The record is an 83-nucleotide RNA sequence from Erwinia mallotivora, which matches "sroB RNA" in Rfam.
Lineage of the source: Bacteria > Pseudomonadati > Enterobacterales > Erwiniaceae > Erwinia.
The family's RNA type in Rfam is small RNA.

[Rfam]
RNA sequence: CCAGCAACCUGAUUGCUGGUGGCUAACUAAAAUCAUUAAAAAUUUCUCUUUGACAGGCCGAUAUUCAUAUUGGCCUUUUUUUU
Numbered sequence: 001c002c003a004g005c006a007a008c009c010u011g012a013u014u015g016c017u018g019g020u021g022g023c024u025a026a027c028u029a030a031a032a033u034c035a036u037u038a039a040a041a042a043u044u045u046c047u048c049u050u051u052g053a054c055a056g057g058c059c060g061a062u063a064u065u066c067a068u069a070u071u072g073g074c075c076u077u078u079u080u081u082u083u
Base pairs, nucleotide, nucleotide: 007020008019009018011016029033055076056075057074058073059072060071061070062069063068